[Rfam]
RNA sequence: GGUCACCUGUUCAGCCAAUGGCGUUCAGGGGGCUUUACCUACCAGGUGGUGACCUCGGGCAAACUCGGGGCAUCGCCAAGCUAACGGAAGACAGAAA
Numbered sequence: 001g002g003u004c005a006c007c008u009g010u011u012c013a014g015c016c017a018a019u020g021g022c023g024u025u026c027a028g029g030g031g032g033c034u035u036u037a038c039c040u041a042c043c044a045g046g047u048g049g050u051g052a053c054c055u056c057g058g059g060c061a062a063a064c065u066c067g068g069g070g071c072a073u074c075g076c077c078a079a080g081c082u083a084a085c086g087g088a089a090g091a092c093a094g095a096a097a
Stems, first nucleotide, its partner, number of pairs: 001034004006030003045077007
L2-Alphaproteobacteria ribosomal protein leader: a 97-nucleotide RNA from Aliiroseovarius crassostreae. Lineage of the source: Bacteria > Pseudomonadati > Pseudomonadota > Rhodobacterales > Aliiroseovarius.